[Rfam]
RNA sequence: GCUAACUUGAUCUAUGCGAACAACUCUUGGAUUGGAUGAUUUGUUCGUGUGGCUCGAGUUAGAU
Numbered sequence: 001g002c003u004a005a006c007u008u009g010a011u012c013u014a015u016g017c018g019a020a021c022a023a024c025u026c027u028u029g030g031a032u033u034g035g036a037u038g039a040u041u042u043g044u045u046c047g048u049g050u051g052g053c054u055c056g057a058g059u060u061a062g063a064u
Stems, first nucleotide, its partner, number of pairs: 002062002005059006012052002017047002020044004025039002
Background: Shown here is a 64-nucleotide RNA from Zophobas morio, a member of the family "mir-375 microRNA precursor family". For this family Rfam cites "The developmental miRNA profiles of zebrafish as determined by small RNA cloning" (Chen et al., Genes Dev, 2005). The family has 47 seed sequences and 824 matches in Rfam 15.1. A search with the family's covariance model found it, with a score of 51 bits. The base pairs follow the family's consensus structure, which was predicted with RNAalifold.